[Rfam]
A member of the RNA family "Mammalian CPEB3 ribozyme" from Crocodylus porosus, 71 nucleotides long.
Nucleotides: 071
Base pairs, nucleotide, nucleotide: 010038012035015071017069018068019067020066021065022034023033024032043060044059045058046057047056048055
Number, partner (000 for none) and nucleotide at each position: 001000a002000u003000c004000a005000g006000a007000u008000a009000a010038g011000c012035u013000a014000u015071g016000c017069c018068a019067g020066a021065a022034g023033c024032a025000c026000u027000c028000a029000u030000g031000a032024u033023g034022c035012a036000a037000a038010c039000c040000u041000g042000u043060c044059a045058g046057a047056u048055u049000c050000u051000a052000a053000c054000a055048a056047a057046u058045c059044u060043g061000c062000a063000a064000a065021u066020u067019c068018u069017g070000c071015u

The organism belongs to Crocodylus, within Eukaryota.
The literature on the family includes a 2006 paper in Science by Salehi-Ashtiani et al., "A genomewide search for ribozymes reveals an HDV-like sequence in the human CPEB3 gene".